[Rfam]
Rfam assigns this 66-nucleotide sequence from Synechococcus sp. WH 7803 to the family "Cyano-1 RNA". The organism belongs to Synechococcus, within Bacteria. Rfam 15.1 lists 283 matches to the family in 194 species. Rfam classes the family as a small RNA. It is one of the family's seed sequences.
RNA sequence: AUUUGUGUGAGGAACCGGCAACCCCAAAGAGUCGAAACAAGGUCAGACGUCUUUGUGUUGCCGGCC
Numbered sequence: 001a002u003u004u005g006u007g008u009g010a011g012g013a014a015c016c017g018g019c020a021a022c023c024c025c026a027a028a029g030a031g032u033c034g035a036a037a038c039a040a041g042g043u044c045a046g047a048c049g050u051c052u053u054u055g056u057g058u059u060g061c062c063g064g065c066c
Base pairs, nucleotide, nucleotide: 018061019060020059021058022057026054027053028052029051030050031048032047033046